[Rfam]
A member of the RNA family "mir-124 microRNA precursor family" from Patiria miniata, 76 nucleotides long. Rfam 15.1 lists 2,215 matches to the family in 905 species. NCBI's taxonomy places the organism under Eukaryota, Echinodermata, Asterozoa, Valvatida, Patiria.

RNA sequence: AGUUCUUAGUGUUCACUGCGAUCCUUGAUUUACACACAACGUGGGCAAUUAAGGCACGCGGUGAAUGCCAAGAGCC
Numbered sequence: 001a002g003u004u005c006u007u008a009g010u011g012u013u014c015a016c017u018g019c020g021a022u023c024c025u026u027g028a029u030u031u032a033c034a035c036a037c038a039a040c041g042u043g044g045g046c047a048a049u050u051a052a053g054g055c056a057c058g059c060g061g062u063g064a065a066u067g068c069c070a071a072g073a074g075c076c
Base pairs, nucleotide, nucleotide: 003074004073005072006071009068010067011066012065013064014063015062016061018059019058020057023054024053025052026051027050028049029048030047